[Rfam]
RNA sequence: GAGUUAACGUUGCUGGCAAGGUUAAGUGAUUAAGUCACGGAUCCGUAGCGAAAGCGAGUCUGAAUAGGGCGCUUUAGUCAGUAGUGUUAGACGCGAAACCGUGUGAUCUACCCAUGGGCAGGAUGAAGCUGUGGUAACACAUAGUGGAGGUCCGAACCGGUUGACGUUGAAAAGUCUUCGGAUGACCUGUGGGUAGGGGUGAAAGGCCAAUCAAACUCGGAAAUAGCUCGUA
Numbered sequence: 001g002a003g004u005u006a007a008c009g010u011u012g013c014u015g016g017c018a019a020g021g022u023u024a025a026g027u028g029a030u031u032a033a034g035u036c037a038c039g040g041a042u043c044c045g046u047a048g049c050g051a052a053a054g055c056g057a058g059u060c061u062g063a064a065u066a067g068g069g070c071g072c073u074u075u076a077g078u079c080a081g082u083a084g085u086g087u088u089a090g091a092c093g094c095g096a097a098a099c100c101g102u103g104u105g106a107u108c109u110a111c112c113c114a115u116g117g118g119c120a121g122g123a124u125g126a127a128g129c130u131g132u133g134g135u136a137a138c139a140c141a142u143a144g145u146g147g148a149g150g151u152c153c154g155a156a157c158c159g160g161u162u163g164a165c166g167u168u169g170a171a172a173a174g175u176c177u178u179c180g181g182a183u184g185a186c187c188u189g190u191g192g193g194u195a196g197g198g199g200u201g202a203a204a205g206g207c208c209a210a211u212c213a214a215a216c217u218c219g220g221a222a223a224u225a226g227c228u229c230g231u232a
Stems, first nucleotide, its partner, number of pairs: 005089013020044002023041001026038003048055002058070004092230002095227001099220003103216002108196011119184001121153004128145006157181003163176003198208003
A member of the RNA family "Bacterial large subunit ribosomal RNA" from Flavobacterium aquatile, 232 nucleotides of a longer RNA. The organism belongs to Flavobacterium aquatile, within Bacteria. The match comes from Rfam's covariance-model search (2800 bits).